This 149-nucleotide RNA belongs to the Rfam family "DUF2693 RNA".
RNA sequence: GAUCUUUGACAUAUUGAAUAGCGAUGGACAAGACACAUAGUAAUUAACCCAUCGCUGGCAGAGCUUGAGCAAAAAGAGCCAAGUGCAUAGGCAAGCCGUCAUCCUAACGGAGCUUGUCCACUGCGGGGAGCGAAACCUCCUGCCAGCAC
Dot-bracket structure: .....................................................(((((((((.((((............))))).......(((((...............)))))........((((.......))))))))))))..
Numbered sequence: 001g002a003u004c005u006u007u008g009a010c011a012u013a014u015u016g017a018a019u020a021g022c023g024a025u026g027g028a029c030a031a032g033a034c035a036c037a038u039a040g041u042a043a044u045u046a047a048c049c050c051a052u053c054g055c056u057g058g059c060a061g062a063g064c065u066u067g068a069g070c071a072a073a074a075a076g077a078g079c080c081a082a083g084u085g086c087a088u089a090g091g092c093a094a095g096c097c098g099u100c101a102u103c104c105u106a107a108c109g110g111a112g113c114u115u116g117u118c119c120a121c122u123g124c125g126g127g128g129a130g131c132g133a134a135a136c137c138u139c140c141u142g143c144c145a146g147c148a149c
Stems, first nucleotide, its partner, number of pairs: 054147008062084001064083004092116005125139004
It is one of the family's seed sequences.
It is annotated as a small RNA.